[Rfam]
RNA sequence: GCCUCUGAGGAUGAUUGAAAAUAAGAAACUUUCGUUCUUCCGAGAAAAUCCAUGCGGAAAAUUUCUGGAGACCUGAACUGAAGAGGU
Numbered sequence: 001g002c003c004u005c006u007g008a009g010g011a012u013g014a015u016u017g018a019a020a021a022u023a024a025g026a027a028a029c030u031u032u033c034g035u036u037c038u039u040c041c042g043a044g045a046a047a048a049u050c051c052a053u054g055c056g057g058a059a060a061a062u063u064u065c066u067g068g069a070g071a072c073c074u075g076a077a078c079u080g081a082a083g084a085g086g087u
Stems, first nucleotide, its partner, number of pairs: 003085004